Nucleotides: 035
Stems, first nucleotide, its partner, number of pairs: 002021004010034003
Number, partner (000 for none) and nucleotide at each position: 001000c002021a003020g004019g005018u006000g007000u008000u009000c010034g011033c012032c013000g014000a015000a016000a017000a018005a019004c020003c021002u022000u023000u024000a025000a026000a027000g028000a029000g030000u031000a032012g033011g034010c035000a

Overview: Rfam assigns this 35-nucleotide RNA sequence from marine bacterium AO1-C to the family "DUF805b RNA". The match comes from Rfam's covariance-model search (38 bits). Its Rfam clan is "DUF805 clan". The family's RNA type in Rfam is cis-regulatory element.